[Rfam]
About this RNA:
This 157-nucleotide RNA sequence from Arthrobacter sp. ISL-48 belongs to the Rfam family "c-di-AMP riboswitch aptamer (ydaO/yuaA leader)".
RNA sequence: CUCUGCCGCUUCCCGGAUUCUUCUUGACCAGGCAGAGGCGGGGGACCCACGUCCCGGGCUCUAUGCGCCCUUGGGGUUAAGCCAGCACGUGAAUUUCCGUGUGGCCGGAUGCCCUCAUCCGAACCCGACAGCUAACUCCGCAGGUGUGAGAGGCGAU
Numbered sequence: 001c002u003c004u005g006c007c008g009c010u011u012c013c014c015g016g017a018u019u020c021u022u023c024u025u026g027a028c029c030a031g032g033c034a035g036a037g038g039c040g041g042g043g044g045a046c047c048c049a050c051g052u053c054c055c056g057g058g059c060u061c062u063a064u065g066c067g068c069c070c071u072u073g074g075g076g077u078u079a080a081g082c083c084a085g086c087a088c089g090u091g092a093a094u095u096u097c098c099g100u101g102u103g104g105c106c107g108g109a110u111g112c113c114c115u116c117a118u119c120c121g122a123a124c125c126c127g128a129c130a131g132c133u134a135a136c137u138c139c140g141c142a143g144g145u146g147u148g149a150g151a152g153g154c155g156a157u
Base pairs, nucleotide, nucleotide: 001037002036003035004034005033006032007031038141039140040139041138042137043136048073049072074126075125076124082104083103084102107120108119109118110117
From the family's description: This family represents a conserved RNA structure found upstream of the ydaO and yuaA genes in Bacillus subtilis and related genes in other bacteria. Gene Ontology terms of the family: cyclic-di-AMP binding and regulation of gene expression. The match comes from Rfam's covariance-model search (53 bits).